[Rfam]
RNA sequence: CUAGGUGUGAGGAGUGAACCAUUAAGGCUUGCUUUUGGGAUCGAAACACGGACAGAACCCCAGAAGCAAGUCUUCUCA
Numbered sequence: 001c002u003a004g005g006u007g008u009g010a011g012g013a014g015u016g017a018a019c020c021a022u023u024a025a026g027g028c029u030u031g032c033u034u035u036u037g038g039g040a041u042c043g044a045a046a047c048a049c050g051g052a053c054a055g056a057a058c059c060c061c062a063g064a065a066g067c068a069a070g071u072c073u074u075c076u077c078a
Stems, first nucleotide, its partner, number of pairs: 025073005032066002037061003041056002
This 78-nucleotide sequence from Waterburya agarophytonicola belongs to the Rfam family "Cyano-1 RNA". A search with the family's covariance model found it, with a score of 42 bits. The family's RNA type in Rfam is small RNA. Pairs were carried over by alignment from the consensus structure, which is taken from published work.